The family of this 170-nucleotide RNA sequence from Kitasatospora setae is "c-di-AMP riboswitch aptamer (ydaO/yuaA leader)". Taxonomically the source falls in Kitasatospora setae (Bacteria, Actinomycetota, Kitasatosporales, Kitasatospora). About the family: This family represents a conserved RNA structure found upstream of the ydaO and yuaA genes in Bacillus subtilis and related genes in other bacteria.
RNA sequence: UCAUGCACAACGCACCACGGCAGGGGCGGGGGAACCAGGUAAGUCGCCCCGGGCGGUCGCAGGACCGCACGGGGCUUGGGGUGAAGCCGGGCGCACCGCGAGGUGUGCUCGGCCGGGCGACUCCGGCCCGAAUCCGACAGCUCACCUCGCAGGCGUGGGAGAGGAACGCU
Numbered sequence: 001u002c003a004u005g006c007a008c009a010a011c012g013c014a015c016c017a018c019g020g021c022a023g024g025g026g027c028g029g030g031g032g033a034a035c036c037a038g039g040u041a042a043g044u045c046g047c048c049c050c051g052g053g054c055g056g057u058c059g060c061a062g063g064a065c066c067g068c069a070c071g072g073g074g075c076u077u078g079g080g081g082u083g084a085a086g087c088c089g090g091g092c093g094c095a096c097c098g099c100g101a102g103g104u105g106u107g108c109u110c111g112g113c114c115g116g117g118c119g120a121c122u123c124c125g126g127c128c129c130g131a132a133u134c135c136g137a138c139a140g141c142u143c144a145c146c147u148c149g150c151a152g153g154c155g156u157g158g159g160a161g162a163g164g165a166a167c168g169c170u
Stems, first nucleotide, its partner, number of pairs: 004155003011025001013023001026150006036078005079135003087112011115129004